[Rfam]
RNA sequence: UAAUCUGUUUGGAGCAGAUAUUUAUUUAGUUAUGUAAAACACACAUCUGACUACUAGAUUUUUCUCUGUUUAGUUU
Numbered sequence: 001u002a003a004u005c006u007g008u009u010u011g012g013a014g015c016a017g018a019u020a021u022u023u024a025u026u027u028a029g030u031u032a033u034g035u036a037a038a039a040c041a042c043a044c045a046u047c048u049g050a051c052u053a054c055u056a057g058a059u060u061u062u063u064c065u066c067u068g069u070u071u072a073g074u075u076u
Stems, first nucleotide, its partner, number of pairs: 005073003009068001012065001014063001018059002025056001027053005

Notes: A member of the RNA family "MIR480 microRNA precursor family" from Populus tomentosa, 76 nucleotides long. NCBI's taxonomy places the organism under Eukaryota, Streptophyta, rosids, fabids, Populus. Rfam 15.1 lists 3,070 matches to the family in 171 species. A reference for the family is Lu et al. (2005), "Novel and mechanical stress-responsive MicroRNAs in Populus trichocarpa that are absent from Arabidopsis", Plant Cell.